[Rfam]
RNA sequence: UCCGCAAAAAAACUCCGAGCCAAAAAACCUACGACAAUACUGAUUACGGUUUGCGGCCGACAGGGUUGUUCUGGAAACGGGACAACCUUCCGAUAGUUGAAAAGGAGUGAUCAUGAACGCACCCA
Numbered sequence: 001u002c003c004g005c006a007a008a009a010a011a012a013c014u015c016c017g018a019g020c021c022a023a024a025a026a027a028c029c030u031a032c033g034a035c036a037a038u039a040c041u042g043a044u045u046a047c048g049g050u051u052u053g054c055g056g057c058c059g060a061c062a063g064g065g066u067u068g069u070u071c072u073g074g075a076a077a078c079g080g081g082a083c084a085a086c087c088u089u090c091c092g093a094u095a096g097u098u099g100a101a102a103a104g105g106a107g108u109g110a111u112c113a114u115g116a117a118c119g120c121a122c123c124c125a
Stems, first nucleotide, its partner, number of pairs: 003119002011111001012108005019057003024052002027050003033045002035042002063088011089100002
The record is a 125-nucleotide RNA sequence from Desulforhopalus singaporensis, which matches "Molybdenum/Tungsten riboswitch aptamer (Moco RNA motif)" in Rfam.
A search with the family's covariance model found it, with a score of 60 bits.
The family's consensus secondary structure is taken from published work.